Notes
Rfam assigns this 89-nucleotide RNA from Cnephaeus nilssonii to the family "mir-9195 microRNA precursor family". It scores 91 bits against the family's covariance model.

RNA sequence: AGAGGCCCAUCUGUGGCUGAGUGCGGAAUGCUUGCCUUGUUGCCGCAGCAACAAAGCAAGCAUUCCACCAGGCCGCUCACGCAGCCCAC
Numbered sequence: 001a002g003a004g005g006c007c008c009a010u011c012u013g014u015g016g017c018u019g020a021g022u023g024c025g026g027a028a029u030g031c032u033u034g035c036c037u038u039g040u041u042g043c044c045g046c047a048g049c050a051a052c053a054a055a056g057c058a059a060g061c062a063u064u065c066c067a068c069c070a071g072g073c074c075g076c077u078c079a080c081g082c083a084g085c086c087c088a089c
Stems, first nucleotide, its partner, number of pairs: 004086003013076006021069001023068001025066011039052005
Gene Ontology terms of the family: miRNA-mediated post-transcriptional gene silencing and RISC complex.